[Rfam]
RNA sequence: ACAGGAUCUCACUAUGUUGCCCAGGCUGGUCUCAAACUCCUGUGCUCAAACCAGCCUGGGCAACAUAGUGAGACCUCAU
Numbered sequence: 001a002c003a004g005g006a007u008c009u010c011a012c013u014a015u016g017u018u019g020c021c022c023a024g025g026c027u028g029g030u031c032u033c034a035a036a037c038u039c040c041u042g043u044g045c046u047c048a049a050a051c052c053a054g055c056c057u058g059g060g061c062a063a064c065a066u067a068g069u070g071a072g073a074c075c076u077c078a079u
Base pairs, nucleotide, nucleotide: 007073008072009071010070011069012068013067014066019061020060021059022058023057024056025055032054
The record is a 79-nucleotide RNA from Microcebus murinus, which matches "mir-1285 microRNA precursor family" in Rfam. Rfam 15.1 lists 264 matches to the family in 27 species. Lineage of the source: Eukaryota > Metazoa > Craniata > Amniota > Microcebus.